[Rfam]
RNA sequence: CUUGAUCGAGCCGAGCCACAGCGGCUCUUCGCGAUCCUGCCCGUAUGUGGCGAGGAGGGCCUGCGCCUC
Numbered sequence: 001c002u003u004g005a006u007c008g009a010g011c012c013g014a015g016c017c018a019c020a021g022c023g024g025c026u027c028u029u030c031g032c033g034a035u036c037c038u039g040c041c042c043g044u045a046u047g048u049g050g051c052g053a054g055g056a057g058g059g060c061c062u063g064c065g066c067c068u069c
Base pairs, nucleotide, nucleotide: 014026015025016024017023028065030063032059037054038053041050042049043048

This 69-nucleotide RNA from Streptomyces capitiformicae belongs to the Rfam family "ASpks TB sRNA". Lineage of the source: Bacteria > Actinomycetota > Actinomycetes > Streptomycetaceae > Streptomyces. The family's RNA type in Rfam is antisense RNA.